[Rfam]
RNA sequence: UUCUUAUCAAGAGUGGCGGAGGGACUGGCCCAAUGAAACCCGACAACCAGCAUUCUGAAAAGAUUGUAUGGUGUUAAUUCCAGCAGAUCUAAUCUGAGAGAUAAGAG
Numbered sequence: 001u002u003c004u005u006a007u008c009a010a011g012a013g014u015g016g017c018g019g020a021g022g023g024a025c026u027g028g029c030c031c032a033a034u035g036a037a038a039c040c041c042g043a044c045a046a047c048c049a050g051c052a053u054u055c056u057g058a059a060a061a062g063a064u065u066g067u068a069u070g071g072u073g074u075u076a077a078u079u080c081c082a083g084c085a086g087a088u089c090u091a092a093u094c095u096g097a098g099a100g101a102u103a104a105g106a107g
Base pairs, nucleotide, nucleotide: 001107002106003105004104005103006102007101008100013041015040016039021031022030023029025083026082027081028080042075043074044073045072047071048070049067052065079099084096085095086094087093088092
RNA: SAM riboswitch aptamer (S box leader)